Record summary:
skipping-rope RNA: a 95-nucleotide RNA from Lawsonibacter hominis. The source organism's lineage runs through Bacteria, Bacillota, Clostridia, Oscillospiraceae and Lawsonibacter. By type it is a small RNA. The match comes from Rfam's covariance-model search (60 bits).

RNA sequence: GUUAUUUGAGGUGGAAAUUUCGUGUCGCCACGCGCCACAUGCUUUCGGGCAAUGGGCAAAAGAAAUGCAGGGGAAUGGCACGCCUGCCAAAUAAC
Numbered sequence: 001g002u003u004a005u006u007u008g009a010g011g012u013g014g015a016a017a018u019u020u021c022g023u024g025u026c027g028c029c030a031c032g033c034g035c036c037a038c039a040u041g042c043u044u045u046c047g048g049g050c051a052a053u054g055g056g057c058a059a060a061a062g063a064a065a066u067g068c069a070g071g072g073g074a075a076u077g078g079c080a081c082g083c084c085u086g087c088c089a090a091a092u093a094a095c
Stems, first nucleotide, its partner, number of pairs: 001095008011031004022081005033062001035055003067087005